RNA sequence: UUAGUUUUUCGACUUAGUAGAGUCGAUUUUGUGGAUUCGUCCGGUUUGGUAAUUCCGGUUAAAAAUUACCUGGCGCCCAUGGAU
Numbered sequence: 001u002u003a004g005u006u007u008u009u010c011g012a013c014u015u016a017g018u019a020g021a022g023u024c025g026a027u028u029u030u031g032u033g034g035a036u037u038c039g040u041c042c043g044g045u046u047u048g049g050u051a052a053u054u055c056c057g058g059u060u061a062a063a064a065a066u067u068a069c070c071u072g073g074c075g076c077c078c079a080u081g082g083a084u
Stems, first nucleotide, its partner, number of pairs: 009026007041058004048070006

Record summary
The family of this 84-nucleotide sequence from Diachasma alloeum is "wcaG RNA". The source organism's lineage runs through Eukaryota, Mandibulata, Insecta, Apocrita and Diachasma. It scores 45 bits against the family's covariance model.